Annotation
Rhizobiales sRNA Atu_At1: a 107-nucleotide RNA sequence from Devosia sp. A8/3-2. A reference for the family is Wilms et al. (2012), "Deep sequencing uncovers numerous small RNAs on all four replicons of the plant pathogen Agrobacterium tumefaciens", RNA Biol. The match comes from Rfam's covariance-model search (97 bits). By type it is a small RNA.
[Rfam]
RNA sequence: GGCCGGUGCGCGUCAACCGGACGUGGUGGUAUAGGGAACGGGCUGGUUUUUCCGGUUUCCCGGUCCGGCCAACGCAAUGGCAGCCGAGCCUUUGUCCCACCCGCGCC
Numbered sequence: 001g002g003c004c005g006g007u008g009c010g011c012g013u014c015a016a017c018c019g020g021a022c023g024u025g026g027u028g029g030u031a032u033a034g035g036g037a038a039c040g041g042g043c044u045g046g047u048u049u050u051u052c053c054g055g056u057u058u059c060c061c062g063g064u065c066c067g068g069c070c071a072a073c074g075c076a077a078u079g080g081c082a083g084c085c086g087a088g089c090c091u092u093u094g095u096c097c098c099a100c101c102c103g104c105g106c107c
Stems, first nucleotide, its partner, number of pairs: 006106004011023004025101003028097002033092004039067007068081003